[Rfam]
RNA: Small nucleolar RNA SNORA67
Organism: Nannospalax galili
RNA sequence: AUCCAAGGUGAUUCCCUCUCCAAGGGGCCAACUAGUGUCCUUGUCAAGAACGUAGCAACUUGGAAGAGAUCUUGGCAUGUCUGAGGUCUUUGGGGAGCAAGGGCUGCAUAUCUCCUUUCCCUCUCUUUGGUUGCCUACAUGU
Numbered sequence: 001a002u003c004c005a006a007g008g009u010g011a012u013u014c015c016c017u018c019u020c021c022a023a024g025g026g027g028c029c030a031a032c033u034a035g036u037g038u039c040c041u042u043g044u045c046a047a048g049a050a051c052g053u054a055g056c057a058a059c060u061u062g063g064a065a066g067a068g069a070u071c072u073u074g075g076c077a078u079g080u081c082u083g084a085g086g087u088c089u090u091u092g093g094g095g096a097g098c099a100a101g102g103g104c105u106g107c108a109u110a111u112c113u114c115c116u117u118u119c120c121c122u123c124u125c126u127u128u129g130g131u132u133g134c135c136u137a138c139a140u141g142u
Base pairs, nucleotide, nucleotide: 002064003063004062005061006060007059009057010056019049020048023042024041025040026039027038028037075132078130083125084124085123092115094113095112096111